[Rfam]
RNA sequence: UUUAUGGCUGAUGCAGCAUCAUCAAGAUUCUCACAUCAAAAAGACCGAUGGAUUGGCAGAGCACUUGGAUUGCAUCAUAGUCCCACCCACCUUCAUUUGCAUGUGAAUCUUGAUGAUGCUACAUCCGCAAACAA
Numbered sequence: 001u002u003u004a005u006g007g008c009u010g011a012u013g014c015a016g017c018a019u020c021a022u023c024a025a026g027a028u029u030c031u032c033a034c035a036u037c038a039a040a041a042a043g044a045c046c047g048a049u050g051g052a053u054u055g056g057c058a059g060a061g062c063a064c065u066u067g068g069a070u071u072g073c074a075u076c077a078u079a080g081u082c083c084c085a086c087c088c089a090c091c092u093u094c095a096u097u098u099g100c101a102u103g104u105g106a107a108u109c110u111u112g113a114u115g116a117u118g119c120u121a122c123a124u125c126c127g128c129a130a131a132c133a134a
Stems, first nucleotide, its partner, number of pairs: 010125004015120016032103002
RNA: mir-172 microRNA precursor family